[Rfam]
RNA sequence: GGAUGGGGACGGCCCCACCCCAAACCUGUCAGGGGUGAGGAAGGGGACGGCCCCA
Numbered sequence: 001g002g003a004u005g006g007g008g009a010c011g012g013c014c015c016c017a018c019c020c021c022a023a024a025c026c027u028g029u030c031a032g033g034g035g036u037g038a039g040g041a042a043g044g045g046g047a048c049g050g051c052c053c054c055a
Base pairs, nucleotide, nucleotide: 001020002019004017005016006015007014008013043054044053045052046051